[Rfam]
RNA: Small nucleolar RNA Z199
Organism: Lactuca sativa
RNA sequence: GUUGCCAAGUGAUGAGAAAAUAACUGCAACAAGAUGAUCGAACUAAGUGUUCGUGAUUAUUAGUAUUUAAGUCUCUGAUGCUC
Numbered sequence: 001g002u003u004g005c006c007a008a009g010u011g012a013u014g015a016g017a018a019a020a021u022a023a024c025u026g027c028a029a030c031a032a033g034a035u036g037a038u039c040g041a042a043c044u045a046a047g048u049g050u051u052c053g054u055g056a057u058u059a060u061u062a063g064u065a066u067u068u069a070a071g072u073c074u075c076u077g078a079u080g081c082u083c
Base pairs, nucleotide, nucleotide: 001083004081006080007079039053040052041051042050043049